[Rfam]
RNA: Potassium channel RNA editing signal
RNA sequence: GUCGGUUAUGGCGACAUGUGCCCUAUCACGAUGGGAGGUAAAAUGGUAGGCACUCUAUGUGCCAUUGCUGGUGUCCUAACCAUUGCCUUGCCUGUUCCCGUCAUCGUCUCCAAC
Numbered sequence: 001g002u003c004g005g006u007u008a009u010g011g012c013g014a015c016a017u018g019u020g021c022c023c024u025a026u027c028a029c030g031a032u033g034g035g036a037g038g039u040a041a042a043a044u045g046g047u048a049g050g051c052a053c054u055c056u057a058u059g060u061g062c063c064a065u066u067g068c069u070g071g072u073g074u075c076c077u078a079a080c081c082a083u084u085g086c087c088u089u090g091c092c093u094g095u096u097c098c099c100g101u102c103a104u105c106g107u108c109u110c111c112a113a114c
Stems, first nucleotide, its partner, number of pairs: 001114002004111002008107004013102003018097001020095002037077002040074001049063003